This 319-nucleotide part of an RNA from Thamnocephalis sphaerospora belongs to the Rfam family "Eukaryotic large subunit ribosomal RNA". A search with the family's covariance model found it, with a score of 3036 bits.
RNA sequence: GAGUCUAACAUGUCUGCGAGUGUUUGGGUGGAAAACCCUUACGCGGAAUGAAAGUGACGAGGCGUGUUCGGCACGUCCGCUGGUAGGAAUCGUCCGUCUUCGGAUGGCGCGAUGCACUAUCGACCGACCCGCCGCCCUCUGUGGUGGUAGGUUUGAGUUGGAGCAGUCCUGUUAGGACCCGAAAGAUGGUGAACUAUGCCUGAGCAGGAUGAAGCCAGAGGAAACUCUGGUGGAGGUCCGUAGCGGUUCUGACGUGCAAAUCGAUCGUCGGACUUGGGUAUAGGGGCGAAAGACUAAUCGAACCAUCUAGUAGCUGGUU
Number, nucleotide and partner (000 for none) at each position: 001g000002a000003g000004u000005c175006u174007a173008a172009c171010a170011u000012g168013u000014c166015u165016g164017c163018g000019a000020g044021u043022g042023u000024u000025u000026g038027g037028g036029u035030g000031g000032a000033a000034a000035a029036c028037c027038c026039u000040u000041a000042c022043g021044c020045g000046g000047a000048a055049u054050g000051a000052a000053a000054g049055u048056g000057a000058c000059g000060a000061g000062g000063c000064g000065u000066g000067u000068u000069c000070g000071g000072c000073a000074c000075g000076u000077c000078c000079g000080c000081u000082g121083g120084u119085a118086g117087g000088a000089a113090u112091c111092g110093u109094c000095c000096g000097u000098c000099u000100u000101c000102g000103g000104a000105u000106g000107g000108c000109g093110c092111g091112a090113u089114g000115c000116a000117c086118u085119a084120u083121c082122g000123a158124c157125c155126g154127a153128c151129c150130c000131g000132c000133c000134g145135c144136c000137c000138u000139c000140u000141g000142u000143g000144g135145u134146g000147g000148u000149a000150g129151g128152u000153u127154u126155g125156a000157g124158u123159u000160g000161g000162a000163g017164c016165a015166g014167u000168c012169c000170u010171g009172u008173u007174a006175g005176g000177a000178c317179c316180c000181g314182a000183a000184a000185g307186a306187u305188g304189g303190u302191g000192a000193a000194c283195u282196a281197u280198g279199c278200c277201u276202g275203a274204g273205c271206a000207g239208g238209a237210u236211g000212a000213a000214g231215c230216c229217a228218g227219a226220g225221g000222a000223a000224a000225c220226u219227c218228u217229g216230g215231u214232g000233g000234a000235g000236g210237u209238c208239c207240g000241u000242a000243g268244c267245g266246g265247u000248u264249c263250u000251g262252a261253c000254g000255u000256g000257c000258a000259a000260a000261u252262c251263g249264a248265u246266c245267g244268u243269c000270g000271g205272a000273c204274u203275u202276g201277g200278g199279u198280a197281u196282a195283g194284g000285g295286g294287c000288g000289a000290a000291a000292g000293a000294c286295u285296a000297a000298u000299c000300g000301a000302a190303c189304c188305a187306u186307c185308u000309a000310g000311u000312a000313g000314c181315u000316g179317g178318u000319u000